[Rfam]
RNA sequence: UUGGCUCCGGUUCACGUGCGCAAGCCUGUCCACGACCCGGCGGCC
Numbered sequence: 001u002u003g004g005c006u007c008c009g010g011u012u013c014a015c016g017u018g019c020g021c022a023a024g025c026c027u028g029u030c031c032a033c034g035a036c037c038c039g040g041c042g043g044c045c
Stems, first nucleotide, its partner, number of pairs: 003045003007040004015034004020029003
This 45-nucleotide sequence belongs to the Rfam family "L31-Actinobacteria ribosomal protein leader". The family's RNA type in Rfam is cis-regulatory leader. The family's consensus secondary structure is taken from published work.